This 73-nucleotide RNA sequence from Glutamicibacter sp. BW77 belongs to the Rfam family "tRNA". Lineage of the source: Bacteria > Actinomycetota > Actinomycetes > Micrococcaceae > Glutamicibacter. Rfam classes the family as a transfer RNA. A search with the family's covariance model found it, with a score of 68 bits.
[Rfam]
RNA sequence: GGGGGUAUGGCGCAGUUGGUAGCGCGUCUGCAUGGCAUGCAGAAGGUCAGGGGUUCGAAUCCCCUUAUCUCCA
Dot-bracket structure: (((((((..((((........)))).(((((.......))))).....(((((.......)))))))))))).
Numbered sequence: 001g002g003g004g005g006u007a008u009g010g011c012g013c014a015g016u017u018g019g020u021a022g023c024g025c026g027u028c029u030g031c032a033u034g035g036c037a038u039g040c041a042g043a044a045g046g047u048c049a050g051g052g053g054u055u056c057g058a059a060u061c062c063c064c065u066u067a068u069c070u071c072c073a
Stems, first nucleotide, its partner, number of pairs: 001072007010025004027043005049065005